[Rfam]
About this RNA: The family of this 101-nucleotide RNA sequence from Methyloceanibacter stevinii is "Bacterial small signal recognition particle RNA".
RNA sequence: AGGGAGGUUGGCGGCAGGCGCGUGCCUCGCCAACCGGGUCAGGUCCGGAAGGAAGCAGCCCUAACGAGCGUUUCGCGGGUUGAUUGUCCAGCCUCCCACCU
Numbered sequence: 001a002g003g004g005a006g007g008u009u010g011g012c013g014g015c016a017g018g019c020g021c022g023u024g025c026c027u028c029g030c031c032a033a034c035c036g037g038g039u040c041a042g043g044u045c046c047g048g049a050a051g052g053a054a055g056c057a058g059c060c061c062u063a064a065c066g067a068g069c070g071u072u073u074c075g076c077g078g079g080u081u082g083a084u085u086g087u088c089c090a091g092c093c094u095c096c097c098a099c100c101u
Stems, first nucleotide, its partner, number of pairs: 004095005010088005019077004026068004036061004044053003